[Rfam]
RNA sequence: GAAUCAAGUGACGAGAAAAAAUAACUGCAACAAUAUGAAUGGAAAAUCAAUUCCAUAUCCAUGAUUCUUGGUAUUUAAGUCUCUGAUGAUU
Numbered sequence: 001g002a003a004u005c006a007a008g009u010g011a012c013g014a015g016a017a018a019a020a021a022u023a024a025c026u027g028c029a030a031c032a033a034u035a036u037g038a039a040u041g042g043a044a045a046a047u048c049a050a051u052u053c054c055a056u057a058u059c060c061a062u063g064a065u066u067c068u069u070g071g072u073a074u075u076u077a078a079g080u081c082u083c084u085g086a087u088g089a090u091u
Stems, first nucleotide, its partner, number of pairs: 001091002004089003041060003045056001